Rfam assigns this 72-nucleotide RNA sequence from Streptococcus himalayensis to the family "L17 ribosomal protein downstream element". NCBI's taxonomy places the organism under Bacteria, Bacillati, Bacillota, Lactobacillales, Streptococcus. By type it is a cis-regulatory element.

RNA sequence: UGAGUGUUAUGAUGAUGGAAUGCAUUUGCAUUCUUAGUCUAGCUCUGGUCUACCGCUGGGAUUUCCCAGCGG
Numbered sequence: 001u002g003a004g005u006g007u008u009a010u011g012a013u014g015a016u017g018g019a020a021u022g023c024a025u026u027u028g029c030a031u032u033c034u035u036a037g038u039c040u041a042g043c044u045c046u047g048g049u050c051u052a053c054c055g056c057u058g059g060g061a062u063u064u065c066c067c068a069g070c071g072g
Stems, first nucleotide, its partner, number of pairs: 002045004011039003017034006053072008